[Rfam]
RNA sequence: AGAAAUAAGGCUCCUGUCUUCUACCAGAGACACUGAUGGUGUAAAACCCAGGGUCUCCAGUAAUGGAUAGGAGCCUUAUUUCU
Numbered sequence: 001a002g003a004a005a006u007a008a009g010g011c012u013c014c015u016g017u018c019u020u021c022u023a024c025c026a027g028a029g030a031c032a033c034u035g036a037u038g039g040u041g042u043a044a045a046a047c048c049c050a051g052g053g054u055c056u057c058c059a060g061u062a063a064u065g066g067a068u069a070g071g072a073g074c075c076u077u078a079u080u081u082c083u
Base pairs, nucleotide, nucleotide: 001083002082003081004080005079006078007077008076009075010074011073012072013071014070015069016068017067018066019065022062023061024060027057028056029055030054031053033051034050035049039047040046